Shown here is a 145-nucleotide RNA from Hydrogeniiclostridium mannosilyticum, a member of the family "Ribosomal protein L10 leader". By type it is a cis-regulatory leader. Rfam links the family to the GO term regulation of gene expression.

RNA sequence: AAAUAUGCUGUUCUUUAUUCAAAGACAGCAGGCGCGUUUGCAUAAUAGGGUUUUCCCUGCCUGCCGAGGAUAGAGGCGACUUCAUACAUUGAUGUGUUGUUGCACCCUUCUCGCGGUAUGCGGGAAGGGUGUUUUUUAUGGAUGA
Dot-bracket structure: ...........................((((((((....)).................)))))).......................................((((((((((.......))))))))))...............

Overview
The base pairs follow the family's consensus structure, which was predicted with CMfinder.